[Rfam]
IMES-2 RNA motif: a 140-nucleotide RNA. On this family, see Weinberg et al., Nature 2009: "Exceptional structured noncoding RNAs revealed by bacterial metagenome analysis". It is annotated as a non-coding RNA gene. The sequence is in the family's curated seed alignment.

RNA sequence: UGAUGACUUAAGAGGCAACUCUUAACUGGCCAGGUGGGGAAAAACCGAGAGGUUCAAGCUUACCGGGCAGAAAACUGGGGUCAGUAGUACUAAACAGCCCUAGUGGCAGUGACGAAGGUAGUACUUCAACAGCGUCACAA
Numbered sequence: 001u002g003a004u005g006a007c008u009u010a011a012g013a014g015g016c017a018a019c020u021c022u023u024a025a026c027u028g029g030c031c032a033g034g035u036g037g038g039g040a041a042a043a044a045c046c047g048a049g050a051g052g053u054u055c056a057a058g059c060u061u062a063c064c065g066g067g068c069a070g071a072a073a074a075c076u077g078g079g080g081u082c083a084g085u086a087g088u089a090c091u092a093a094a095c096a097g098c099c100c101u102a103g104u105g106g107c108a109g110u111g112a113c114g115a116a117g118g119u120a121g122u123a124c125u126u127c128a129a130c131a132g133c134g135u136c137a138c139a140a
Stems, first nucleotide, its partner, number of pairs: 008025007026070003030067002033064006043054004074104008087124005109138006117130001